[Rfam]
RNA sequence: AAGUGGGACACCCUUCCCCAACGAAGGGCAUUUAUCUGUGAGGAUACCACAU
Numbered sequence: 001a002a003g004u005g006g007g008a009c010a011c012c013c014u015u016c017c018c019c020a021a022c023g024a025a026g027g028g029c030a031u032u033u034a035u036c037u038g039u040g041a042g043g044a045u046a047c048c049a050c051a052u
Stems, first nucleotide, its partner, number of pairs: 011028006033046005
Rfam assigns this 52-nucleotide RNA from Pseudorhodobacter antarcticus to the family "serC leader". Lineage of the source: Bacteria > Pseudomonadati > Pseudomonadota > Paracoccaceae > Pseudorhodobacter. From the family's description: This family is a putative regulatory RNA structure that is found upstream of the serC-serA operon in some alpha-proteobacteria. The final stem of the structure overlaps the ribosome binding site of the serC reading frame.